RNA: Small nucleolar RNA snoR99
RNA sequence: GUGCCUGCGGUAUGAACAGGUCCCUGACAUGUAAUACCAUUUUAUUCACUUUGUCAGCUUAAAGCUGAUAUAAUGUUUUUAGCUGAUGAUCAAGGAUGGGAAAGUU
Numbered sequence: 001g002u003g004c005c006u007g008c009g010g011u012a013u014g015a016a017c018a019g020g021u022c023c024c025u026g027a028c029a030u031g032u033a034a035u036a037c038c039a040u041u042u043u044a045u046u047c048a049c050u051u052u053g054u055c056a057g058c059u060u061a062a063a064g065c066u067g068a069u070a071u072a073a074u075g076u077u078u079u080u081a082g083c084u085g086a087u088g089a090u091c092a093a094g095g096a097u098g099g100g101a102a103a104g105u106u
Stems, first nucleotide, its partner, number of pairs: 037099005053087007